[Rfam]
Nucleotides: 086
Base pairs, nucleotide, nucleotide: 001086002085003084004083006081007080009078012027013026014025015024016023017022028046029045030044031043032042033041048061049060050059051058052057063077064076065075066074
Number, partner (000 for none) and nucleotide at each position: 001086g002085c003084a004083g005000a006081g007080a008000u009078g010000a011000u012027c013026c014025u015024c016023a017022c018000u019000g020000g021000u022017g023016u024015g025014g026013g027012g028046u029045g030044c031043c032042g033041a034000c035000u036000u037000c038000a039000a040000a041033u042032c043031g044030g045029u046028a047000g048061g049060g050059g051058c052057a053000g054000a055000g056000a057052u058051g059050c060049c061048c062000a063077g064076u065075c066074g067000u068000u069000c070000g071000a072000u073000u074066c075065g076064a077063c078009c079000u080007u081006c082000a083004c084003u085002g086001c